[Rfam]
This 114-nucleotide RNA from Tahibacter aquaticus belongs to the Rfam family "SAM riboswitch aptamer (S box leader)". The organism belongs to Tahibacter, within Bacteria. It scores 70 bits against the family's covariance model. From the family's description: The SAM riboswitch is found upstream of a number of genes which code for proteins involved in methionine or cysteine biosynthesis in Gram-positive bacteria.

Nucleotides: 114
Base pairs, nucleotide, nucleotide: 002113003112004111005110006109007108008107013042014041015040016039017038021031022030023029026077027076028075043070044069045068046067048066049065052061053060054059074106079103080102081101
Number, partner (000 for none) and nucleotide at each position: 001000g002113a003112u004111c005110c006109a007108u008107c009000g010000a011000g012000a013042c014041c015040g016039g017038c018000u019000g020000a021031g022030g023029g024000a025000a026077a027076g028075g029023c030022c031021c032000u033000u034000g035000g036000a037000a038017g039016c040015c041014g042013g043070g044069g045068c046067a047000a048066c049065c050000g051000a052061c053060g054059g055000g056000a057000a058000a059054c060053c061052g062000c063000a064000c065049g066048g067046u068045g069044c070043c071000a072000a073000c074106u075028c076027c077026u078000a079103c080102g081101g082000a083000g084000g085000c086000g087000c088000u089000u090000g091000c092000a093000g094000c095000g096000c097000c098000g099000u100000g101081c102080c103079g104000a105000g106074a107008g108007a109006u110005g111004g112003g113002u114000a